[Rfam]
Rfam assigns this 59-nucleotide RNA from Marinobacterium stanieri to the family "Xanthine riboswitch aptamer (NMT1 RNA)". The organism belongs to Marinobacterium, within Bacteria. A search with the family's covariance model found it, with a score of 41 bits. Gene Ontology term of the family: purine nucleobase binding. The family's consensus secondary structure is taken from published work.
RNA sequence: ACGUUGAGUAGAAGCUGUCAGGCCCUAAGUAUUGCUUAGGCCAGGUCAUUGCUCACUGU
Numbered sequence: 001a002c003g004u005u006g007a008g009u010a011g012a013a014g015c016u017g018u019c020a021g022g023c024c025c026u027a028a029g030u031a032u033u034g035c036u037u038a039g040g041c042c043a044g045g046u047c048a049u050u051g052c053u054c055a056c057u058g059u
Stems, first nucleotide, its partner, number of pairs: 005055006015044001019045001021042004027036001